[Rfam]
RNA sequence: UCUAGGAGAAUAACAAAUCAGAUUUUUCUUUUUUGUUUUCAGCUUUUUCCUCCUGAAAAGAAAAUUUAAAUCUAAUUAAAAACGCUAAAAAUCAGGAAGAAAAAUUUGAUUUCUCAUUCUGCUACU
Numbered sequence: 001u002c003u004a005g006g007a008g009a010a011u012a013a014c015a016a017a018u019c020a021g022a023u024u025u026u027u028c029u030u031u032u033u034u035g036u037u038u039u040c041a042g043c044u045u046u047u048u049c050c051u052c053c054u055g056a057a058a059a060g061a062a063a064a065u066u067u068a069a070a071u072c073u074a075a076u077u078a079a080a081a082a083c084g085c086u087a088a089a090a091a092u093c094a095g096g097a098a099g100a101a102a103a104a105u106u107u108g109a110u111u112u113c114u115c116a117u118u119c120u121g122c123u124a125c126u
Base pairs, nucleotide, nucleotide: 003124004123005122007120008119009118010117011116013114015112016111017110018109019108020107021106022105023104024103025102026101027100029098030097031096032095033094035092036091037090038089039088041086042085045082046081047080048079
The record is a 126-nucleotide RNA from Gossypium stocksii, which matches "MIR7504 microRNA precursor family" in Rfam.
A search with the family's covariance model found it, with a score of 84 bits.
Rfam links the family to the GO terms RISC complex and miRNA-mediated post-transcriptional gene silencing.
NCBI's taxonomy places the organism under Eukaryota, Spermatophyta, eudicotyledons, rosids, Gossypium.